[Rfam]
RNA sequence: GUCAUUCAUACUUUCAGGUCCCACACUCGCUGUGGUCGUCCUUUCUUUCGUGACUGGGUUAAGGUCCGAGUCUUUCAAUCCCCUCAGGAACGUGUUUCUUGGCCUUCCUUAAACUCUCAAGGGGUUUGCUCUUGUAAACAUUCGAGCAGGGCUCAUCAUCAGAAAUCGCUCUCCUCUCUUUGGCUGGCUGGAUCGAUCGUGUUGGGACAGCUUCAAAUGGAUUGUCAUGCUACUCUUGACCGGACUCGUAGAUCAAACAGAUCGGUCCGAAGACAUCGAGCCGCCUCGACGAGGACCUUUCGCUCCUACAAGUUACCCGGUCGAUUUGUUGCAACAUGCUAGUUGACUGCCCGUUCUGGCUACGAUCCUCCAGUCAGCUCCGAGAGGCGAGAUUGGGAACGAUGGGUGGGGGUAGCGGGGGCUGUCUGUUGGCCGACAGCCUUCGAUUUAGUGCAAUCCGCGGUGAGCGAGUUACUGCUCGCUCAACUCAAUUCGGACUACUCUUGGC
Numbered sequence: 001g002u003c004a005u006u007c008a009u010a011c012u013u014u015c016a017g018g019u020c021c022c023a024c025a026c027u028c029g030c031u032g033u034g035g036u037c038g039u040c041c042u043u044u045c046u047u048u049c050g051u052g053a054c055u056g057g058g059u060u061a062a063g064g065u066c067c068g069a070g071u072c073u074u075u076c077a078a079u080c081c082c083c084u085c086a087g088g089a090a091c092g093u094g095u096u097u098c099u100u101g102g103c104c105u106u107c108c109u110u111a112a113a114c115u116c117u118c119a120a121g122g123g124g125u126u127u128g129c130u131c132u133u134g135u136a137a138a139c140a141u142u143c144g145a146g147c148a149g150g151g152c153u154c155a156u157c158a159u160c161a162g163a164a165a166u167c168g169c170u171c172u173c174c175u176c177u178c179u180u181u182g183g184c185u186g187g188c189u190g191g192a193u194c195g196a197u198c199g200u201g202u203u204g205g206g207a208c209a210g211c212u213u214c215a216a217a218u219g220g221a222u223u224g225u226c227a228u229g230c231u232a233c234u235c236u237u238g239a240c241c242g243g244a245c246u247c248g249u250a251g252a253u254c255a256a257a258c259a260g261a262u263c264g265g266u267c268c269g270a271a272g273a274c275a276u277c278g279a280g281c282c283g284c285c286u287c288g289a290c291g292a293g294g295a296c297c298u299u300u301c302g303c304u305c306c307u308a309c310a311a312g313u314u315a316c317c318c319g320g321u322c323g324a325u326u327u328g329u330u331g332c333a334a335c336a337u338g339c340u341a342g343u344u345g346a347c348u349g350c351c352c353g354u355u356c357u358g359g360c361u362a363c364g365a366u367c368c369u370c371c372a373g374u375c376a377g378c379u380c381c382g383a384g385a386g387g388c389g390a391g392a393u394u395g396g397g398a399a400c401g402a403u404g405g406g407u408g409g410g411g412g413u414a415g416c417g418g419g420g421g422c423u424g425u426c427u428g429u430u431g432g433c434c435g436a437c438a439g440c441c442u443u444c445g446a447u448u449u450a451g452u453g454c455a456a457u458c459c460g461c462g463g464u465g466a467g468c469g470a471g472u473u474a475c476u477g478c479u480c481g482c483u484c485a486a487c488u489c490a491a492u493u494c495g496g497a498c499u500a501c502u503c504u505u506g507g508c
Stems, first nucleotide, its partner, number of pairs: 001464003005460001017055004066496005080411004112126005127148005151407007170392003465484007
RNA: Nuclear RNase P
Organism: Puccinia triticina